Overview:
TPP riboswitch aptamer (THI element): a 102-nucleotide sequence from Trichloromonas acetexigens. Its family is annotated with thiamine pyrophosphate binding in the Gene Ontology. It scores 70 bits against the family's covariance model. Lineage of the source: Bacteria > Thermodesulfobacteriota > Desulfuromonadia > Trichloromonadaceae > Trichloromonas.

[Rfam]
RNA sequence: GUAACGCCCUAGGGGAGUGAACCACUGAGAGUCCUGGCAACAGGAUGACCCUUUGAACCUGAUCCGGAUUAUACCGGCGUAGGGAAGCGGCGCCCACCGAGA
Number, nucleotide and partner (000 for none) at each position: 001g000002u000003a000004a000005c000006g000007c089008c000009c087010u086011a052012g051013g050014g049015g000016a046017g025018u024019g023020a000021a000022c000023c019024a018025c017026u000027g000028a000029g000030a000031g000032u045033c044034c043035u042036g041037g000038c000039a000040a000041c036042a035043g034044g033045a032046u016047g000048a000049c014050c013051c012052u011053u000054u000055g000056a000057a000058c083059c082060u081061g080062a000063u000064c077065c076066g075067g074068a000069u000070u000071a000072u000073a000074c067075c066076g065077g064078c000079g000080u061081a060082g059083g058084g000085a000086a010087g009088c000089g007090g000091c000092g000093c000094c000095c000096a000097c000098c000099g000100a000101g000102a000